[Rfam]
RNA sequence: UAAAUUCUUCGGGGCAGGGUGUGAUUCCCAACCGACGGUAACAACAUUUUGUUGAAGUCCGUGACCCGCGCAAGCGGUUGACCCAGUGAAACUCUGGGACCGACAGUAUAGUCUGGAUGGGAGAAGAAAUAG
Dot-bracket structure: ..(.((((((......(((.......))).[[((((((..................[[))))...((........))....(((((.......)))))]])).(((....]]))).......)))))).)..

The family of this 132-nucleotide RNA sequence from Oenococcus oeni is "FMN riboswitch aptamer (RFN element)". Rfam 15.1 lists 6,230 matches to the family in 5,120 species. Rfam links the family to the GO term FMN binding. The source organism's lineage runs through Bacteria, Bacillati, Bacillota, Lactobacillales and Oenococcus oeni. Pairs were carried over by alignment from the consensus structure, which is taken from published work.